MIR6152 microRNA precursor family: an 82-nucleotide RNA sequence from Nicotiana tabacum. The family's consensus secondary structure was predicted with RNAalifold. The family has 2 seed sequences and 5,807 matches in Rfam 15.1.
[Rfam]
RNA sequence: UGGACAGAUUAUUAUAUUCGAUUGUGUUCACGACGUGAAAUAGAGAAAACGGAAAGUGAAUCAAUUAACAUAAUAGACUCCU
Dot-bracket structure: .(((....(((((((.((.((.((.((((((..(((............)))....)))))))).)))).)))))))..))).